[Rfam]
RNA: c-di-AMP riboswitch aptamer (ydaO/yuaA leader)
RNA sequence: UGGUGGCCGCCGCCUAAUCGCCUGCGGGCGAGCCGGGGAACCAUGUUUGUGGGGUGCAUCCGCUCCAGCGGUAGGGAUCUUCCGUCCCGAACCCGUCAGCUAACCCGGUCGGCGGCUGACGGAAGGACAC
Numbered sequence: 001u002g003g004u005g006g007c008c009g010c011c012g013c014c015u016a017a018u019c020g021c022c023u024g025c026g027g028g029c030g031a032g033c034c035g036g037g038g039a040a041c042c043a044u045g046u047u048u049g050u051g052g053g054g055u056g057c058a059u060c061c062g063c064u065c066c067a068g069c070g071g072u073a074g075g076g077a078u079c080u081u082c083c084g085u086c087c088c089g090a091a092c093c094c095g096u097c098a099g100c101u102a103a104c105c106c107g108g109u110c111g112g113c114g115g116c117u118g119a120c121g122g123a124a125g126g127a128c129a130c
Stems, first nucleotide, its partner, number of pairs: 011114004018031003032109006042051002052094003060071004074088004